This 199-nucleotide RNA sequence from Paenibacillus abyssi belongs to the Rfam family "c-di-AMP riboswitch aptamer (ydaO/yuaA leader)". The source organism's lineage runs through Bacteria, Bacilli, Caryophanales, Paenibacillaceae and Paenibacillus.
RNA sequence: UUUCCAGUUUCGCUUAAUCUCCGGAAAUGGAGAACGGGGGAACCAAAUACGGCAAUUUGUGACUCACGCACAAUGAGCAGUAUUGAAUUCUUUUAGGGGUGAAUUUUGGGACCUUGGCGCCUACGCCAAAAGUACCGAAUAGGGCGACUCUCUUGCCCGAACCCGUCAGCUAACCUCGUCAGCGUGCCAUAGAGAGAUC
Numbered sequence: 001u002u003u004c005c006a007g008u009u010u011c012g013c014u015u016a017a018u019c020u021c022c023g024g025a026a027a028u029g030g031a032g033a034a035c036g037g038g039g040g041a042a043c044c045a046a047a048u049a050c051g052g053c054a055a056u057u058u059g060u061g062a063c064u065c066a067c068g069c070a071c072a073a074u075g076a077g078c079a080g081u082a083u084u085g086a087a088u089u090c091u092u093u094u095a096g097g098g099g100u101g102a103a104u105u106u107u108g109g110g111a112c113c114u115u116g117g118c119g120c121c122u123a124c125g126c127c128a129a130a131a132g133u134a135c136c137g138a139a140u141a142g143g144g145c146g147a148c149u150c151u152c153u154u155g156c157c158c159g160a161a162c163c164c165g166u167c168a169g170c171u172a173a174c175c176u177c178g179u180c181a182g183c184g185u186g187c188c189a190u191a192g193a194g195a196g197a198u199c
Base pairs, nucleotide, nucleotide: 011184012183013182014181018033019032020031021030022029023028034179035178036177037176038175039174044096097164098163099162105139106138107137108136142158143157144156145155